terC RNA: a 64-nucleotide RNA sequence from Lichenibacterium minor.
RNA sequence: UCACUGAGCCGGGCCCCUCUGGCGCCCUCCGACACGGUCGGGGGCGCGAUGUCGGAUCAGUCUG
Numbered sequence: 001u002c003a004c005u006g007a008g009c010c011g012g013g014c015c016c017c018u019c020u021g022g023c024g025c026c027c028u029c030c031g032a033c034a035c036g037g038u039c040g041g042g043g044g045c046g047c048g049a050u051g052u053c054g055g056a057u058c059a060g061u062c063u064g
Base pairs, nucleotide, nucleotide: 006058007057009055010054011053012052022047023046024045025044026043027042028041029040
The base pairs follow the family's consensus structure, which is taken from published work.